RNA sequence: ACCGUCAUGGAUGACGGUGGUUCCAUGCAGUAACAAGUUUGUGCAACAAACUUGUAGUGAACGAAUGUACAUGGAGGUACAUUCGUUCGCGUUG
Dot-bracket structure: ((((((......))))))...............(((((((((...)))))))))..((((((((((((((......))))))))))))))....
Rfam assigns this 94-nucleotide sequence from Treponema vincentii to the family "TD-2 RNA".
A search with the family's covariance model found it, with a score of 66 bits.
Rfam 15.1 lists 310 matches to the family in 11 species.
A reference for the family is Weinberg et al. (2007), "Identification of 22 candidate structured RNAs in bacteria using the CMfinder comparative genomics pipeline", Nucleic Acids Res.
The source organism's lineage runs through Bacteria, Pseudomonadati, Spirochaetota, Treponema and Treponema vincentii.